[Rfam]
RNA: GP20-a RNA
RNA sequence: AAAAGUCAAUGCGGUGAGACAUUUAAAGUACCCGUACAUUCCAGUGUAGAAAGUGACUACACAUUUAAACAAGAAACUGAUUCAAGAAUGUGAAAGGAGAAU
Numbered sequence: 001a002a003a004a005g006u007c008a009a010u011g012c013g014g015u016g017a018g019a020c021a022u023u024u025a026a027a028g029u030a031c032c033c034g035u036a037c038a039u040u041c042c043a044g045u046g047u048a049g050a051a052a053g054u055g056a057c058u059a060c061a062c063a064u065u066u067a068a069a070c071a072a073g074a075a076a077c078u079g080a081u082u083c084a085a086g087a088a089u090g091u092g093a094a095a096g097g098a099g100a101a102u
Base pairs, nucleotide, nucleotide: 005020006019007018009035010034011033013031037090038089039088040087041086044062045061046060047059048058